Annotation:
Shown here is a 155-nucleotide sequence from Coprococcus sp. AF21-14LB, a member of the family "Group II catalytic intron D1-D4-7". Rfam links the family to the GO term Group II intron splicing.

RNA sequence: CUACUUCUUUCUCGUAGUAUCCCUAUCGGUAAAUGCCUAGUAAGAAAUGAACGGUGUGAAGCAACCGAGACAAAGUGAGAAAAGUGGAAACCACAUCUGCUCUAUUGCGAGGGAAAGAUGUAUAUGAUUAACAAAUGUGAACUGUUGUAAGGGUC
Numbered sequence: 001c002u003a004c005u006u007c008u009u010u011c012u013c014g015u016a017g018u019a020u021c022c023c024u025a026u027c028g029g030u031a032a033a034u035g036c037c038u039a040g041u042a043a044g045a046a047a048u049g050a051a052c053g054g055u056g057u058g059a060a061g062c063a064a065c066c067g068a069g070a071c072a073a074a075g076u077g078a079g080a081a082a083a084g085u086g087g088a089a090a091c092c093a094c095a096u097c098u099g100c101u102c103u104a105u106u107g108c109g110a111g112g113g114a115a116a117g118a119u120g121u122a123u124a125u126g127a128u129u130a131a132c133a134a135a136u137g138u139g140a141a142c143u144g145u146u147g148u149a150a151g152g153g154u155c
Stems, first nucleotide, its partner, number of pairs: 002019004007014001027067004033057005041050001043048001082096001084094003098122003105112002129147005
The family has 244 seed sequences and 1,296 matches in Rfam 15.1. NCBI's taxonomy places the organism under Bacteria, Bacillati, Clostridia, Lachnospiraceae, Coprococcus.